[Rfam]
RNA sequence: GCUCUGUGAUGAGACGUAGCCAAAUCUGAGCACUGCAAAGAUCAGCUGAUCUUGACGGUGCGUGAUUUAUCGACCGUUCUGGGA
Number, nucleotide and partner (000 for none) at each position: 001g000002c000003u000004c000005u000006g000007u000008g000009a000010u000011g000012a000013g000014a000015c000016g000017u000018a000019g000020c000021c000022a000023a000024a000025u000026c000027u000028g000029a000030g061031c060032a059033c058034u057035g000036c000037a000038a000039a052040g051041a050042u049043c000044a000045g000046c000047u000048g000049a042050u041051c040052u039053u000054g000055a000056c000057g034058g033059u032060g031061c030062g000063u000064g000065a000066u000067u000068u000069a000070u000071c000072g000073a000074c000075c000076g000077u000078u000079c000080u000081g000082g000083g000084a000
RNA: Small nucleolar RNA U2-19